[Rfam]
RNA sequence: CCUGGGACUUGCGUCCCAGGCUGUCGCGUGCCCUGGCUUCGCCACU
Numbered sequence: 001c002c003u004g005g006g007a008c009u010u011g012c013g014u015c016c017c018a019g020g021c022u023g024u025c026g027c028g029u030g031c032c033c034u035g036g037c038u039u040c041g042c043c044a045c046u
Base pairs, nucleotide, nucleotide: 001020002019003018004017005016006015007014008013034044035043036042037041

Rfam assigns this 46-nucleotide RNA sequence from Rosistilla oblonga to the family "Acido-Lenti-1 RNA".